[Rfam]
RNA sequence: ACAGAGAGCUGCAGUGCAGCACUGCGUGUAUUUGACAAGCUGAGUCCGACACUCAGCGUGCAGAGUGUCAGUUUGUCAAAUACCCCAAGUGAGGCAUUUGCUGAG
Number, nucleotide and partner (000 for none) at each position: 001a000002c000003a000004g000005a000006g000007a000008g000009c000010u000011g000012c000013a000014g000015u000016g000017c000018a000019g000020c091021a090022c089023u088024g000025c000026g085027u000028g083029u082030a081031u080032u079033u078034g077035a076036c075037a074038a073039g072040c071041u070042g000043a000044g000045u000046c000047c000048g069049a068050c067051a066052c000053u064054c063055a000056g000057c000058g000059u000060g000061c000062a000063g054064a053065g000066u051067g050068u049069c048070a041071g040072u039073u038074u037075g036076u035077c034078a033079a032080a031081u030082a029083c028084c000085c026086c000087a000088a023089g022090u021091g020092a000093g000094g000095c000096a000097u000098u000099u000100g000101c000102u000103g000104a000105g000